[Rfam]
The record is a 110-nucleotide RNA from Terribacillus sp. AE2B 122, which matches "SAM riboswitch aptamer (S box leader)" in Rfam. The base pairs follow the family's consensus structure, which is taken from published work. Taxonomically the source falls in Terribacillus (Bacteria, Bacilli, Caryophanales, Bacillaceae). A search with the family's covariance model found it, with a score of 90 bits. Rfam describes the family as follows. The SAM riboswitch is found upstream of a number of genes which code for proteins involved in methionine or cysteine biosynthesis in Gram-positive bacteria. Rfam links the family to the GO term regulation of gene expression.
RNA sequence: UUCUUAUCCAGAGAGACCGAGGGAUCAGGCCCUAUGACGUCUCGGCAACGGGUUUACACAAAUACCGUGCCAAUUCCUGCAAACGCCUAUGAGCGUUUGGAAGAUGAGAA
Numbered sequence: 001u002u003c004u005u006a007u008c009c010a011g012a013g014a015g016a017c018c019g020a021g022g023g024a025u026c027a028g029g030c031c032c033u034a035u036g037a038c039g040u041c042u043c044g045g046c047a048a049c050g051g052g053u054u055u056a057c058a059c060a061a062a063u064a065c066c067g068u069g070c071c072a073a074u075u076c077c078u079g080c081a082a083a084c085g086c087c088u089a090u091g092a093g094c095g096u097u098u099g100g101a102a103g104a105u106g107a108g109a110a
Base pairs, nucleotide, nucleotide: 001110002109003108004107005106006105007104008103013043014042015041016040017039021032022031023030026079027078028077029076044071045070046069047068049067050066051063053061054060075102080099081098082097083096084095085094